The record is a 108-nucleotide RNA sequence from Puia dinghuensis, which matches "Bacteroidales small SRP" in Rfam. Its Rfam clan is "SRP clan". The organism belongs to Puia, within Bacteria. It is annotated as a non-coding RNA gene.

RNA sequence: UUGCACCGGCAAAGUCUUAUACGACCAGCUCCCGCUGAACCCCGCCAGGGCCGGAAGGCAGCAACGGUAGGUGGUCGUAGCGGUGCGAUAUAAGUAACUUUGCCAUUU
Numbered sequence: 001u002u003g004c005a006c007c008g009g010c011a012a013a014g015u016c017u018u019a020u021a022c023g024a025c026c027a028g029c030u031c032c033c034g035c036u037g038a039a040c041c042c043c044g045c046c047a048g049g050g051c052c053g054g055a056a057g058g059c060a061g062c063a064a065c066g067g068u069a070g071g072u073g074g075u076c077g078u079a080g081c082g083g084u085g086c087g088a089u090a091u092a093a094g095u096a097a098c099u100u101u102g103c104c105a106u107u108u
Base pairs, nucleotide, nucleotide: 008104009103010102011101012100013099014098015097017093018092019091020090021089022087023086024084025083